RNA: ZMP/ZTP riboswitch aptamer (pfl RNA motif)
RNA sequence: UGCUCCUGUCGCGACUGGCGCACGCGGGUAACCGCGAGGAAGCGACAUGAUGGCCGUGCCUCGCGGCGUGGCCAUCGAUCACGGUCGUUCGCCUGGGCCACGGUC
Numbered sequence: 001u002g003c004u005c006c007u008g009u010c011g012c013g014a015c016u017g018g019c020g021c022a023c024g025c026g027g028g029u030a031a032c033c034g035c036g037a038g039g040a041a042g043c044g045a046c047a048u049g050a051u052g053g054c055c056g057u058g059c060c061u062c063g064c065g066g067c068g069u070g071g072c073c074a075u076c077g078a079u080c081a082c083g084g085u086c087g088u089u090c091g092c093c094u095g096g097g098c099c100a101c102g103g104u105c
Base pairs, nucleotide, nucleotide: 004050005049007047008046009045010044011043012042015039016038017093018092019091020090024035025034026033027032083099084098085097086096